Source information:
This 45-nucleotide RNA from Bifidobacterium actinocoloniiforme belongs to the Rfam family "L31-Actinobacteria ribosomal protein leader". The family's consensus secondary structure is taken from published work. The family's RNA type in Rfam is cis-regulatory leader. The organism belongs to Bifidobacterium actinocoloniiforme, within Bacteria.
RNA sequence: UUGGUUCCGGUUCACGUCGGCCAUAGGGGCAGGCGACCCGGAUCC
Numbered sequence: 001u002u003g004g005u006u007c008c009g010g011u012u013c014a015c016g017u018c019g020g021c022c023a024u025a026g027g028g029g030c031a032g033g034c035g036a037c038c039c040g041g042a043u044c045c
Base pairs, nucleotide, nucleotide: 003045004044007041008040009039010038015035016034017033018032020030021029022028